[Rfam]
RNA sequence: CCCGGUGUUCAGCCACCGGUAGCCUAGGAGCAGUGUAGGACGGGCAACCGACUGUACUAAGCGCUCUGACAAUGUAGCCACCCCAUGGGGUACGCUGGACCCCGUGAGGGGCCUGGCGUGAACUCGGAAACGCGUCCGAGGAAGGCG
Numbered sequence: 001c002c003c004g005g006u007g008u009u010c011a012g013c014c015a016c017c018g019g020u021a022g023c024c025u026a027g028g029a030g031c032a033g034u035g036u037a038g039g040a041c042g043g044g045c046a047a048c049c050g051a052c053u054g055u056a057c058u059a060a061g062c063g064c065u066c067u068g069a070c071a072a073u074g075u076a077g078c079c080a081c082c083c084c085a086u087g088g089g090g091u092a093c094g095c096u097g098g099a100c101c102c103c104g105u106g107a108g109g110g111g112c113c114u115g116g117c118g119u120g121a122a123c124u125c126g127g128a129a130a131c132g133c134g135u136c137c138g139a140g141g142a143a144g145g146c147g
Stems, first nucleotide, its partner, number of pairs: 002019006027067005032058007041050003080091004092119004102109002123140006
Shown here is a 147-nucleotide sequence from Sulfurifustis variabilis, a member of the family "Group II catalytic intron D1-D4-7". The pairing is the family consensus, mapped onto this sequence. Rfam's curators write: Group II introns are found in rRNA, tRNA and mRNA of organelles in fungi, plants and protists, and also in mRNA in bacteria. The family has 244 seed sequences and 1,296 matches in Rfam 15.1. The match comes from Rfam's covariance-model search (93 bits).